[Rfam]
The family of this 123-nucleotide sequence from Diaphorobacter sp. HDW4B is "Glycine riboswitch aptamer". The organism belongs to Diaphorobacter, within Bacteria. Rfam's curators write: This family represents the bacterial glycine riboswitch. Rfam links the family to the GO term glycine biosynthetic process.
RNA sequence: GUUCCCCCAGCUGGAGAGAGGCUGUUUUCAGCGCGAAAACGGUCCACCGAAGGAGCAAGUCGCCACGUGUCUUUCAAAUGACGUGCGAUGAAUCUCUCAGGUAAAGCGGACAGCAGGGCAAAC
Numbered sequence: 001g002u003u004c005c006c007c008c009a010g011c012u013g014g015a016g017a018g019a020g021g022c023u024g025u026u027u028u029c030a031g032c033g034c035g036a037a038a039a040c041g042g043u044c045c046a047c048c049g050a051a052g053g054a055g056c057a058a059g060u061c062g063c064c065a066c067g068u069g070u071c072u073u074u075c076a077a078a079u080g081a082c083g084u085g086c087g088a089u090g091a092a093u094c095u096c097u098c099a100g101g102u103a104a105a106g107c108g109g110a111c112a113g114c115a116g117g118g119c120a121a122a123c
Stems, first nucleotide, its partner, number of pairs: 006118003010114004020044008046102003049098002053096003059089005